Shown here is a 228-nucleotide RNA sequence from Miscanthus lutarioriparius, a member of the family "MIR6217 microRNA precursor family".

[Rfam]
RNA sequence: GGGCUAUAGAAUAACUUAUUCUAUAGCCACUUUAAGUUACGAUAAUUAUUAUACUAAUUUACAUGAUUAUAAUAAUUCCUUACUAAGUGGUUUACUAUAAUGUUACGGUAAAUAUUUUCAUGUGUUAUAGUAACAUAAUUAUCAUAAAUAUGUAUUUACUUUAUCGUAAAUUAAAUAUAAAAAAUAUCGUAAAUAGAAGUGGCUACAAAAUAACUUAUUCUAUAACCA
Numbered sequence: 001g002g003g004c005u006a007u008a009g010a011a012u013a014a015c016u017u018a019u020u021c022u023a024u025a026g027c028c029a030c031u032u033u034a035a036g037u038u039a040c041g042a043u044a045a046u047u048a049u050u051a052u053a054c055u056a057a058u059u060u061a062c063a064u065g066a067u068u069a070u071a072a073u074a075a076u077u078c079c080u081u082a083c084u085a086a087g088u089g090g091u092u093u094a095c096u097a098u099a100a101u102g103u104u105a106c107g108g109u110a111a112a113u114a115u116u117u118u119c120a121u122g123u124g125u126u127a128u129a130g131u132a133a134c135a136u137a138a139u140u141a142u143c144a145u146a147a148a149u150a151u152g153u154a155u156u157u158a159c160u161u162u163a164u165c166g167u168a169a170a171u172u173a174a175a176u177a178u179a180a181a182a183a184a185u186a187u188c189g190u191a192a193a194u195a196g197a198a199g200u201g202g203c204u205a206c207a208a209a210a211u212a213a214c215u216u217a218u219u220c221u222a223u224a225a226c227c228a
Stems, first nucleotide, its partner, number of pairs: 002227002005224010016213005022207001024205010037192008046184002050179004055173008065165003069161001072157001074155001080147003087142006093132011107117002
The organism belongs to Miscanthus, within Eukaryota. Gene Ontology terms of the family: miRNA-mediated post-transcriptional gene silencing and RISC complex. It scores 138 bits against the family's covariance model. Pairs were carried over by alignment from the consensus structure, which was predicted with RNAalifold.